Rfam assigns this 66-nucleotide RNA from Acanthochromis polyacanthus to the family "Small nucleolar RNA SNORD58". Rfam 15.1 lists 2,484 matches to the family in 680 species. snoRNA U58 is found in introns 1, 3 and 6 of the ribosomal protein RPL17 gene in humans. The source organism's lineage runs through Eukaryota, Metazoa, Gnathostomata, Acanthomorphata and Acanthochromis. The family's RNA type in Rfam is C/D-box small nucleolar RNA. For this family Rfam cites "Purified box C/D snoRNPs are able to reproduce site-specific 2'-O-methylation of target RNA in vitro" (Galardi et al., Mol Cell Biol, 2002). The family's consensus secondary structure was predicted with PFOLD.
RNA sequence: UUGCAAUGAUGACCUUUUAGGACACCUUUAGAUGAACCAUGAAAAGAAAGAAUCAGUCUGAGCAGU
Numbered sequence: 001u002u003g004c005a006a007u008g009a010u011g012a013c014c015u016u017u018u019a020g021g022a023c024a025c026c027u028u029u030a031g032a033u034g035a036a037c038c039a040u041g042a043a044a045a046g047a048a049a050g051a052a053u054c055a056g057u058c059u060g061a062g063c064a065g066u
Base pairs, nucleotide, nucleotide: 001065002064003063004062